[Rfam]
RNA: NiCo (Nickel/Cobalt) riboswitch aptamer
Organism: Clostridium cadaveris
RNA sequence: ACAGUACAAACUGAUCAGGCCGAUGAAUGACUUUAUUUAUGGAGCCGGGCCGUAAAUGGCAACAGGAUUUUUAGGAAGCUACAAUACCUGUGGGACAGUU
Number, nucleotide and partner (000 for none) at each position: 001a000002c000003a000004g000005u000006a000007c000008a000009a000010a099011c098012u097013g096014a000015u000016c094017a000018g046019g045020c044021c000022g000023a040024u039025g038026a037027a036028u035029g000030a000031c000032u000033u000034u000035a028036u027037u026038u025039a024040u023041g000042g000043a000044g020045c019046c018047g000048g000049g060050c059051c058052g057053u000054a000055a000056a000057u052058g051059g050060c049061a000062a091063c090064a089065g088066g087067a000068u000069u000070u000071u000072u000073a000074g000075g000076a000077a000078g000079c000080u000081a000082c000083a000084a000085u000086a000087c066088c065089u064090g063091u062092g000093g000094g016095a000096c013097a012098g011099u010100u000